The record is a 102-nucleotide sequence from Ligilactobacillus ubinensis, which matches "THF (Tetrahydrofolate) riboswitch aptamer" in Rfam. The family has 101 seed sequences and 747 matches in Rfam 15.1. Tetrahydrofolate (THF) riboswitch was first reported for Ames et al. as an RNA motif in 5' untranslated (5'-UTR)regions of folate transport and biosynthesis genes in Firmicutes genomes. For this family Rfam cites "The structure of a tetrahydrofolate-sensing riboswitch reveals two ligand binding sites in a single aptamer" (Trausch et al., Structure, 2011).

RNA sequence: AUAGGGGUAGGCACCCUUGCGUUACGGGUCAAAGGAACGGAAUGUGAACUUUGACAGAACGGCUUUUGUCAUAGCCGACGUUUUGUGUGCCGCAUUCACCAU
Numbered sequence: 001a002u003a004g005g006g007g008u009a010g011g012c013a014c015c016c017u018u019g020c021g022u023u024a025c026g027g028g029u030c031a032a033a034g035g036a037a038c039g040g041a042a043u044g045u046g047a048a049c050u051u052u053g054a055c056a057g058a059a060c061g062g063c064u065u066u067u068g069u070c071a072u073a074g075c076c077g078a079c080g081u082u083u084u085g086u087g088u089g090c091c092g093c094a095u096u097c098a099c100c101a102u
Base pairs, nucleotide, nucleotide: 001102002101004100005099010091011090012089013088014087016085019082020080021079022078027055029054030053031052032051033050034049040097041096042095043094044093060077061076062075063074